[Rfam]
RNA sequence: GAAAAAGCUGUCUAGGGUUCCGCUGGUUCCACCAUGAGCGACAUUAUUGCGAGUCGUGGGAGAGUCAGGCCAGGUCCGAGAGAUGGCGUGCGAUGGACCCGUACAGCUGCGGUAAGCGGCGGCGAGCCGGACAUGCGCAUACACGGAAGGAUAAAAGCCUGGGAGAU
Dot-bracket structure: ......((((((..((...(((((((((..................................))))))..).)).))....))))))(((((...........................................))))).(.[...(((.......))).)..]..
Numbered sequence: 001g002a003a004a005a006a007g008c009u010g011u012c013u014a015g016g017g018u019u020c021c022g023c024u025g026g027u028u029c030c031a032c033c034a035u036g037a038g039c040g041a042c043a044u045u046a047u048u049g050c051g052a053g054u055c056g057u058g059g060g061a062g063a064g065u066c067a068g069g070c071c072a073g074g075u076c077c078g079a080g081a082g083a084u085g086g087c088g089u090g091c092g093a094u095g096g097a098c099c100c101g102u103a104c105a106g107c108u109g110c111g112g113u114a115a116g117c118g119g120c121g122g123c124g125a126g127c128c129g130g131a132c133a134u135g136c137g138c139a140u141a142c143a144c145g146g147a148a149g150g151a152u153a154a155a156a157g158c159c160u161g162g163g164a165g166a167u
Stems, first nucleotide, its partner, number of pairs: 007087006015077002020074002022071001023068006088140005142162001144165001148160003